A member of the RNA family "SAH (S-adenosyl-L-homocysteine) riboswitch aptamer" from Stenotrophomonas daejeonensis, 92 nucleotides long.
On this family, see Wang et al., Mol Cell 2008: "Riboswitches that sense S-adenosylhomocysteine and activate genes involved in coenzyme recycling".
Pairs were carried over by alignment from the consensus structure, which is taken from published work.
RNA sequence: CCGUACCGAGGGGCGCUGCGACUGUCAGGCGGUUCAUGCCGCCCAAUACAGCCAGGCUCGGACGGCUACCCACAGAACGGCGCCCGGCGAAC
Number, nucleotide and partner (000 for none) at each position: 001c000002c064003g063004u062005a000006c061007c060008g059009a058010g000011g000012g000013g000014c000015g000016c000017u000018g000019c000020g000021a000022c051023u050024g049025u048026c000027a000028g000029g000030c000031g000032g000033u000034u000035c000036a000037u000038g000039c000040c000041g000042c000043c000044c000045a000046a000047u000048a025049c024050a023051g022052c000053c000054a000055g000056g000057c000058u009059c008060g007061g006062a004063c003064g002065g000066c000067u000068a000069c000070c000071c000072a000073c000074a000075g000076a000077a000078c000079g000080g000081c000082g000083c000084c000085c000086g000087g000088c000089g000090a000091a000092c000